[Rfam]
Rfam assigns this 164-nucleotide sequence from Candidula unifasciata to the family "U1 spliceosomal RNA". Taxonomically the source falls in Candidula (Eukaryota, Eumetazoa, Spiralia, Panpulmonata). Its family is annotated with U1 snRNP, mRNA 5'-splice site recognition and pre-mRNA 5'-splice site binding in the Gene Ontology.

RNA sequence: AUACUUACCUGGCACAGGAGCUACGAUGAUCAUCAAGGUCGUGCUCCCAGGAUGAGGCCCUUCCAUUGCACUUCGGUUGGGUUGACGCCUGCGAUCACCCCAAAUGUGGGUGACUCGAGUGCGUAAUUUUUUCGUAAGGGGGACUGCGUUCGCGCUAUCCCCUC
Dot-bracket structure: ...........((((.(((((.(((((..........)))))))))).(((..(.(((.(..((..........))..).)))..).))).((((((.((.......)).))).))).))))..............(((((.(..(((....)))..)))))).
The family's RNA type in Rfam is spliceosomal small nuclear RNA.